[Rfam]
RNA sequence: AAUAGGAGAAUAACAAAUCAAAGUUUUCCUCAUGUUUUUUAGCAUUUUUAGUUGGAUAUGAAUUUCAGGAGGAAAAAGCUGAAAAUCAGGAGGGAAAUUUUGACUUGUCAUUCUCCUAUU
Numbered sequence: 001a002a003u004a005g006g007a008g009a010a011u012a013a014c015a016a017a018u019c020a021a022a023g024u025u026u027u028c029c030u031c032a033u034g035u036u037u038u039u040u041a042g043c044a045u046u047u048u049u050a051g052u053u054g055g056a057u058a059u060g061a062a063u064u065u066c067a068g069g070a071g072g073a074a075a076a077a078g079c080u081g082a083a084a085a086u087c088a089g090g091a092g093g094g095a096a097a098u099u100u101u102g103a104c105u106u107g108u109c110a111u112u113c114u115c116c117u118a119u120u
Stems, first nucleotide, its partner, number of pairs: 001120011013108004018103010029092003033088002036085004041080002045076004
RNA: MIR7504 microRNA precursor family